RNA: TPP riboswitch aptamer (THI element)
RNA sequence: UUCCUGACCUCGGGGUGCCCUGUUUCGGGCUGAGACGCAUGACGCGGACCCGUCGAACCUGAUCCGGCUGACCCCGGCGGAGGGAAGGUGGCCUUGGUCCUU
Numbered sequence: 001u002u003c004c005u006g007a008c009c010u011c012g013g014g015g016u017g018c019c020c021u022g023u024u025u026c027g028g029g030c031u032g033a034g035a036c037g038c039a040u041g042a043c044g045c046g047g048a049c050c051c052g053u054c055g056a057a058c059c060u061g062a063u064c065c066g067g068c069u070g071a072c073c074c075c076g077g078c079g080g081a082g083g084g085a086a087g088g089u090g091g092c093c094u095u096g097g098u099c100c101u102u
Stems, first nucleotide, its partner, number of pairs: 007089004011052004016046001017030004037045002058083003064077004